[Rfam]
RNA sequence: ACUCAAUUGUGUAAAUAACACACACGUAUCGGCACAUGCGCCGGGGUGCCUCAGGUGAGAAUCUCGCUCUGGGGUCGGCGUUAUGGGAUACGUGGAGGCAUAAC
Number, nucleotide and partner (000 for none) at each position: 001a000002c000003u000004c000005a000006a000007u000008u000009g000010u000011g000012u000013a000014a000015a000016u000017a000018a000019c000020a000021c000022a000023c094024a093025c092026g091027u090028a089029u088030c087031g000032g000033c000034a000035c085036a084037u083038g082039c000040g079041c078042c077043g076044g000045g000046g000047u000048g075049c074050c073051u072052c071053a070054g069055g068056u000057g000058a000059g000060a000061a000062u000063c000064u000065c000066g000067c000068u055069c054070u053071g052072g051073g050074g049075u048076c043077g042078g041079c040080g000081u000082u038083a037084u036085g035086g000087g030088a029089u028090a027091c026092g025093u024094g023095g000096a000097g000098g000099c000100a000101u000102a000103a000104c000
Rfam assigns this 104-nucleotide RNA from Serratia rubidaea to the family "t44 RNA". It scores 80 bits against the family's covariance model. NCBI's taxonomy places the organism under Bacteria, Pseudomonadati, Pseudomonadota, Yersiniaceae, Serratia. From the family's description: This family consists of a number of bacterial RNA genes of between 135 and 170 bases in length. The t44 gene has been identified in several species of enteric bacteria but homologs have also been identified in Pseudomonas and Coxiella species. The t44 gene is found between the map and rpsB genes in all species in the full alignment apart from Shigella flexneri. The function of this RNA is unknown.